mir-302 microRNA precursor family: a 68-nucleotide RNA sequence from Phyllostomus discolor. It scores 74 bits against the family's covariance model. The base pairs follow the family's consensus structure, which was predicted with RNAalifold.
RNA sequence: CCUUUGCUCUAACAUGGGAGUGCCUGCUGUGUGCAACAAAAGUAAGUGCUUCCAUGUUUCAGUGGAGG
Numbered sequence: 001c002c003u004u005u006g007c008u009c010u011a012a013c014a015u016g017g018g019a020g021u022g023c024c025u026g027c028u029g030u031g032u033g034c035a036a037c038a039a040a041a042g043u044a045a046g047u048g049c050u051u052c053c054a055u056g057u058u059u060c061a062g063u064g065g066a067g068g
Stems, first nucleotide, its partner, number of pairs: 001068003005064004011058013025044004